A member of the RNA family "Baculoviridae Nucleocapsid Assembly essential Element" from Alphabaculovirus urprotei, 200 nucleotides long. Gene Ontology term of the family: viral capsid assembly.
RNA sequence: CACUUUUUGACGCGUAUAUUUACCAAUAUACUACAUUCUGAUGUCUGUAUCUACAUUUUUGGCAAAAUCGACGAGUCAUAUACUACGAUUGCACACAAAUAUACUACACUGACCCCUCAAAUAUAUUACGAUCGCGAAAAACGGCCAAAAUAUAUUGAAGUAUAUGGGGCAAAUAUACAAAAAAACAACUCUACGAUUUU
Dot-bracket structure: ........((...(((((((....))))))).....(..(((....)).)..)..................................................................................(.......(((.....((((....))))....))).......)...........)).........
Source information: Internal cis-element within the ac83 gene. Rfam classes the family as a cis-regulatory element. Lineage of the source: Viruses > Naldaviricetes > Lefavirales > Alphabaculovirus > Alphabaculovirus urprotei.